[Rfam]
RNA sequence: UUAAAACAGCCUGUGGGUUGAUCCCACCCACAGGGCCCAUUGGGCGCUAGCACUCUGGUAUUACGGUACCCUUGUGCGCCUGUUUUACAC
Numbered sequence: 001u002u003a004a005a006a007c008a009g010c011c012u013g014u015g016g017g018u019u020g021a022u023c024c025c026a027c028c029c030a031c032a033g034g035g036c037c038c039a040u041u042g043g044g045c046g047c048u049a050g051c052a053c054u055c056u057g058g059u060a061u062u063a064c065g066g067u068a069c070c071c072u073u074g075u076g077c078g079c080c081u082g083u084u085u086u087a088c089a090c
Stems, first nucleotide, its partner, number of pairs: 002087007010034009035045003046079002050077004057070004
The family of this 90-nucleotide sequence from Enterovirus betacoxsackie is "Enterovirus 5' cloverleaf cis-acting replication element". The base pairs follow the family's consensus structure, which is taken from published work. From the family's description: This family represents a cis-regulatory element found at the 5' end of Enterovirus genomes. The element has a cloverleaf like secondary structure and is known to be a multifunctional cis-acting replication element (CRE), required for the initiation of negative strand RNA synthesis.